[Rfam]
RNA sequence: CAAAUCCUGAUAUGUUUGUUGAAACUUAAUCAGUUUUGACCGAACAUAAUAUCGUUGGGAGUUGUCAUUUUGGAAUGGCAAACAUGCCUGUAAUGGGACUUUUAAAGUUUCAAAUACGACACCCACCUGCAAAGAGUGCGGGUUCAAAGCGAUUUGUAAAAACAACGGCAUAAUUGGGAUUUGC
Numbered sequence: 001c002a003a004a005u006c007c008u009g010a011u012a013u014g015u016u017u018g019u020u021g022a023a024a025c026u027u028a029a030u031c032a033g034u035u036u037u038g039a040c041c042g043a044a045c046a047u048a049a050u051a052u053c054g055u056u057g058g059g060a061g062u063u064g065u066c067a068u069u070u071u072g073g074a075a076u077g078g079c080a081a082a083c084a085u086g087c088c089u090g091u092a093a094u095g096g097g098a099c100u101u102u103u104a105a106a107g108u109u110u111c112a113a114a115u116a117c118g119a120c121a122c123c124c125a126c127c128u129g130c131a132a133a134g135a136g137u138g139c140g141g142g143u144u145c146a147a148a149g150c151g152a153u154u155u156g157u158a159a160a161a162a163c164a165a166c167g168g169c170a171u172a173a174u175u176g177g178g179a180u181u182u183g184c
Stems, first nucleotide, its partner, number of pairs: 002182010012171004017167003033150003037146003040142002057124003061120005068114001070113007082101001087097004

The record is a 184-nucleotide RNA from Rummeliibacillus sp. TYF005, which matches "6S / SsrS RNA" in Rfam. Pairs were carried over by alignment from the consensus structure, which is taken from published work.